[Rfam]
RNA sequence: GUGCGGUCACAAAAAACAAGUUUUUUGAACGUUGACUUUACCAAUGGCUCCAAAGGAGUGAAUCAAUCACUUUAGUGAUUGAUGGAUAAUUUUUCAC
Dot-bracket structure: .........(((((((....)))))))..(((((.......)))))(((((...)))))..(((((((((....)))))))))...(.(....).).
RNA: Aggregatibacter sRNA 22
Organism: Pasteurellaceae bacterium NI1060